[Rfam]
RNA sequence: UAGUUGGUGAAAGUCCAACCCGAGUAAGUGUCAAGACGCUCGGUAGCUGACAGGCAACUGGUGGCGAAAUCCUAAGGUUGAAGCCCUGUGACAAAGUAACUCUCUCGCGGAGUGCGAGCAAACCAGCAGACCGUAACAUCA
Number, nucleotide and partner (000 for none) at each position: 001u000002a000003g000004u000005u000006g000007g000008u000009g000010a000011a000012a000013g000014u000015c000016c000017a000018a000019c000020c043021c042022g041023a040024g039025u000026a000027a000028g000029u000030g000031u000032c000033a000034a000035g000036a000037c000038g000039c024040u023041c022042g021043g020044u000045a000046g000047c000048u000049g000050a089051c088052a087053g086054g085055c080056a079057a078058c077059u076060g000061g000062u000063g000064g071065c000066g000067a000068a000069a000070u000071c064072c000073u000074a000075a000076g059077g058078u057079u056080g055081a000082a000083g000084c000085c054086c053087u052088g051089u050090g000091a000092c000093a000094a000095a000096g115097u000098a000099a000100c000101u112102c000103u110104c000105u000106c000107g000108c000109g000110g103111a000112g101113u000114g000115c096116g000117a000118g134119c133120a000121a000122a000123c000124c000125a000126g000127c000128a000129g000130a000131c000132c000133g119134u118135a000136a000137c000138a000139u000140c000141a000